[Rfam]
RNA sequence: GGAGUCUGGUUCAACAUGACUCAGACCUCAGCUAAAGAAGCUGAUGGACUGAGUCAGGGCCACACUACCC
Numbered sequence: 001g002g003a004g005u006c007u008g009g010u011u012c013a014a015c016a017u018g019a020c021u022c023a024g025a026c027c028u029c030a031g032c033u034a035a036a037g038a039a040g041c042u043g044a045u046g047g048a049c050u051g052a053g054u055c056a057g058g059g060c061c062a063c064a065c066u067a068c069c070c
Stems, first nucleotide, its partner, number of pairs: 001068001003066002007062005015057001017056004022051003026047002028044006
This 70-nucleotide RNA from Neotoma lepida belongs to the Rfam family "mir-631 microRNA precursor family". The family's consensus secondary structure was predicted with RNAalifold. A reference for the family is Brameier (2010), "Genome-wide comparative analysis of microRNAs in three non-human primates", BMC Res Notes.